[Rfam]
This 377-nucleotide RNA from Rhizobium sp. RU36D belongs to the Rfam family "Alphaproteobacteria transfer-messenger RNA".
RNA sequence: CCCCUUUUCAUCCCUGCGCUAAACACCUAUAUGAGGAGUGCCGGGGCUUGCUCCGGCUAUGGCAAUAAACGGUCGGUGUAAUAAACCUAUUGGACCCGGGGGCGGUACCCGGCGCCUCCACCAAAAACCGGUCGGGCUUCUCGCAUGGGAUGACCGGCUUUUGAUGGGGGCGAAAUAGGAUCGACAAGGGCGUAAAGAUCGAACUUUUGCUCGGCAUGAUACCGCCGUUAUCGGGUCACAAGUGUAGUUGCAAACGACAACAACGCUAAGGAAUACGCUCUCGCUGCCUAAUGGCGGUGCGGGAAUUCCGCUCUAAGUCCUCUAGGUUAGCCCCUUGAGGCGGGGUCCGAAGGCACCUGGCAACAGAAGCCUUCACC
Numbered sequence: 001c002c003c004c005u006u007u008u009c010a011u012c013c014c015u016g017c018g019c020u021a022a023a024c025a026c027c028u029a030u031a032u033g034a035g036g037a038g039u040g041c042c043g044g045g046g047c048u049u050g051c052u053c054c055g056g057c058u059a060u061g062g063c064a065a066u067a068a069a070c071g072g073u074c075g076g077u078g079u080a081a082u083a084a085a086c087c088u089a090u091u092g093g094a095c096c097c098g099g100g101g102g103c104g105g106u107a108c109c110c111g112g113c114g115c116c117u118c119c120a121c122c123a124a125a126a127a128c129c130g131g132u133c134g135g136g137c138u139u140c141u142c143g144c145a146u147g148g149g150a151u152g153a154c155c156g157g158c159u160u161u162u163g164a165u166g167g168g169g170g171c172g173a174a175a176u177a178g179g180a181u182c183g184a185c186a187a188g189g190g191c192g193u194a195a196a197g198a199u200c201g202a203a204c205u206u207u208u209g210c211u212c213g214g215c216a217u218g219a220u221a222c223c224g225c226c227g228u229u230a231u232c233g234g235g236u237c238a239c240a241a242g243u244g245u246a247g248u249u250g251c252a253a254a255c256g257a258c259a260a261c262a263a264c265g266c267u268a269a270g271g272a273a274u275a276c277g278c279u280c281u282c283g284c285u286g287c288c289u290a291a292u293g294g295c296g297g298u299g300c301g302g303g304a305a306u307u308c309c310g311c312u313c314u315a316a317g318u319c320c321u322c323u324a325g326g327u328u329a330g331c332c333c334c335u336u337g338a339g340g341c342g343g344g345g346u347c348c349g350a351a352g353g354c355a356c357c358u359g360g361c362a363a364c365a366g367a368a369g370c371c372u373u374c375a376c377c
Stems, first nucleotide, its partner, number of pairs: 040057007061211005071204001073202005086190003090187003096112005113172007212227004217238003222234002343358004349374006
Taxonomically the source falls in Rhizobium (Bacteria, Pseudomonadota, Hyphomicrobiales, Rhizobiaceae). It is annotated as a non-coding RNA gene. From the family's description: Bacterial tmRNA, also known as 10Sa RNA or SsrA, is named for its dual tRNA and mRNA-like properties. Its role is to liberate the mRNA from a stalled ribosome. To accomplish this part of the tmRNA is used as a reading frame that ends in a translation stop signal. The broken mRNA is replaced in the ribosome by the tmRNA and translation of the tmRNA leads to addition of a proteolysis tag to the incomplete protein enabling recognition by a protease. Recently a number of permuted tmRNA genes have been found encoded in two parts. tmRNAs have been identified in eubacteria and some chloroplasts but are absent from archaeal and eukaryote nuclear genomes.